The record is a 134-nucleotide RNA sequence from Pan troglodytes, which matches "U8 small nucleolar RNA" in Rfam. A search with the family's covariance model found it, with a score of 114 bits. The base pairs follow the family's consensus structure, which is taken from published work. It is annotated as a C/D-box small nucleolar RNA. Taxonomically the source falls in Pan (Eukaryota, Opisthokonta, Eumetazoa, Craniata).
[Rfam]
RNA sequence: UCGAUGGGUGGGAUAAUCCUUACCUGUUCCUCGUUUUGGAGGGCAGAUAGAACAUGAUUAUUGGAGAUGCAUGAAAUGUGAUUAAUGCCUCUGCCUAAUCAGGACUUGCAACACCCUGAGUACUCCUCUCUGAU
Dot-bracket structure: .......................(((.(((((......))))))))..........................((..(((....).))..))....((.(((((...........))))).))............